[Rfam]
RNA sequence: GGGUCGGGAGCGCUGCCUUUGCGGUGCGUUGAACAUAUGUGUCACCUGGCUC
Numbered sequence: 001g002g003g004u005c006g007g008g009a010g011c012g013c014u015g016c017c018u019u020u021g022c023g024g025u026g027c028g029u030u031g032a033a034c035a036u037a038u039g040u041g042u043c044a045c046c047u048g049g050c051u052c
Base pairs, nucleotide, nucleotide: 001052002051003050004049005048006047007046008045010027011026012025013024014023015022016021030044031043032042034041